[Rfam]
RNA sequence: UUCUGGUGCCCUUCAUUCCACCGGAAUCUGUCAACAUAACCAGAUUUCAGUGAAAUGAAGUCCAUCAGGGA
Numbered sequence: 001u002u003c004u005g006g007u008g009c010c011c012u013u014c015a016u017u018c019c020a021c022c023g024g025a026a027u028c029u030g031u032c033a034a035c036a037u038a039a040c041c042a043g044a045u046u047u048c049a050g051u052g053a054a055a056u057g058a059a060g061u062c063c064a065u066c067a068g069g070g071a
Stems, first nucleotide, its partner, number of pairs: 011060006019052003023048004028043003

mir-205 microRNA precursor family: a 71-nucleotide RNA from Eubucco bourcierii. Rfam 15.1 lists 1,154 matches to the family in 646 species. A reference for the family is Lim et al. (2003), "Vertebrate microRNA genes", Science. The family's consensus secondary structure was predicted with RNAalifold.